[Rfam]
RNA sequence: CAAAUGAAAUAGCAAACUCGUUGAAAGACGGGGGCGCAAAGCCACAGGUCUAAAGCAAUAAUUGCAAUGACGGCUGGGUUGCCAAG
Numbered sequence: 001c002a003a004a005u006g007a008a009a010u011a012g013c014a015a016a017c018u019c020g021u022u023g024a025a026a027g028a029c030g031g032g033g034g035c036g037c038a039a040a041g042c043c044a045c046a047g048g049u050c051u052a053a054a055g056c057a058a059u060a061a062u063u064g065c066a067a068u069g070a071c072g073g074c075u076g077g078g079u080u081g082c083c084a085a086g
Stems, first nucleotide, its partner, number of pairs: 012037002017032006040080004045076003048071003055065004
Shown here is an 86-nucleotide RNA sequence from Ornithinibacillus caprae, a member of the family "c-di-GMP-I riboswitch aptamer". The source organism's lineage runs through Bacteria, Bacillati, Bacillota, Bacilli and Ornithinibacillus.